About this RNA
This 126-nucleotide sequence from Anaerolinea thermolimosa belongs to the Rfam family "FMN riboswitch aptamer (RFN element)". From the family's description: The RFN element is a highly conserved domain that is found frequently in the 5'-untranslated regions of prokaryotic mRNAs that encode for flavin mononucleotide (FMN) biosynthesis and transport proteins. Rfam links the family to the GO term FMN binding. The source organism's lineage runs through Bacteria, Bacillati, Anaerolineae, Anaerolineales and Anaerolinea.
RNA sequence: ACAUACCUUCGGGGCAGGGUGAAAUUCCCGAUCGGUGGUGACAACCCACGAGCAGCCGCCUCAGGCGGGGCAUGACCCGGUGUAAUUCCGGGGUCGACGGUACAGUCCGGAUGAAAGAAGGUAUUC
Numbered sequence: 001a002c003a004u005a006c007c008u009u010c011g012g013g014g015c016a017g018g019g020u021g022a023a024a025u026u027c028c029c030g031a032u033c034g035g036u037g038g039u040g041a042c043a044a045c046c047c048a049c050g051a052g053c054a055g056c057c058g059c060c061u062c063a064g065g066c067g068g069g070g071c072a073u074g075a076c077c078c079g080g081u082g083u084a085a086u087u088c089c090g091g092g093g094u095c096g097a098c099g100g101u102a103c104a105g106u107c108c109g110g111a112u113g114a115a116a117g118a119a120g121g122u123a124u125u126c
Stems, first nucleotide, its partner, number of pairs: 003124008017029003031106002033096002035049004044094002052071002076092005098109003